[Rfam]
RNA: Small nucleolar RNA SNORD115
RNA sequence: AGGUCUAUGAUGACAAACCAAAGUCAUGAAGAGUGGUGAUGACAAAAAAAUCAUGCUCAAUAGGAUUAUGCUGAGACCC
Numbered sequence: 001a002g003g004u005c006u007a008u009g010a011u012g013a014c015a016a017a018c019c020a021a022a023g024u025c026a027u028g029a030a031g032a033g034u035g036g037u038g039a040u041g042a043c044a045a046a047a048a049a050a051u052c053a054u055g056c057u058c059a060a061u062a063g064g065a066u067u068a069u070g071c072u073g074a075g076a077c078c079c
Stems, first nucleotide, its partner, number of pairs: 002078003005073001008070002